[Rfam]
RNA sequence: UGAAGGGCGAGUGAUCGCCCGUGAUCGCGUUGCAGAAGUCAGCAGAGGGCAUAGUACUGCGGCCUACUCGGCGCGAUGUGAUAUUGCGAAGUGAAUAGCGGCAGGAAGGCC
Numbered sequence: 001u002g003a004a005g006g007g008c009g010a011g012u013g014a015u016c017g018c019c020c021g022u023g024a025u026c027g028c029g030u031u032g033c034a035g036a037a038g039u040c041a042g043c044a045g046a047g048g049g050c051a052u053a054g055u056a057c058u059g060c061g062g063c064c065u066a067c068u069c070g071g072c073g074c075g076a077u078g079u080g081a082u083a084u085u086g087c088g089a090a091g092u093g094a095a096u097a098g099c100g101g102c103a104g105g106a107a108g109g110c111c
Stems, first nucleotide, its partner, number of pairs: 001023002005020006039046002048111003057104004062099001

A member of the RNA family "Group II catalytic intron D1-D4-1" from Marinobacter nauticus, 111 nucleotides long. The sequence is in the family's curated seed alignment. The base pairs follow the family's consensus structure. The source organism's lineage runs through Bacteria, Pseudomonadota, Marinobacteraceae, Marinobacter and Marinobacter nauticus.